[Rfam]
RNA sequence: CUAUAAGACAUUCAUCAACUUCUACUGUUGAAAACUGGUAUGGCUAACGAAAUAACCAGACAGUUACACAUGAUAUGCCAUGGGUACCUCAUACUGACGUACAUUGACAAGUUUUUAAUAGUAAAAAUGGAUGGAUUUUUUAACA
Numbered sequence: 001c002u003a004u005a006a007g008a009c010a011u012u013c014a015u016c017a018a019c020u021u022c023u024a025c026u027g028u029u030g031a032a033a034a035c036u037g038g039u040a041u042g043g044c045u046a047a048c049g050a051a052a053u054a055a056c057c058a059g060a061c062a063g064u065u066a067c068a069c070a071u072g073a074u075a076u077g078c079c080a081u082g083g084g085u086a087c088c089u090c091a092u093a094c095u096g097a098c099g100u101a102c103a104u105u106g107a108c109a110a111g112u113u114u115u116u117a118a119u120a121g122u123a124a125a126a127a128u129g130g131a132u133g134g135a136u137u138u139u140u141u142a143a144c145a
Stems, first nucleotide, its partner, number of pairs: 004142005010136007018128001020126002023123004028118006
The family of this 145-nucleotide sequence from Gossypium aridum is "MIR7502 microRNA precursor family".
It scores 86 bits against the family's covariance model.
The source organism's lineage runs through Eukaryota, Tracheophyta, Mesangiospermae, malvids and Gossypium.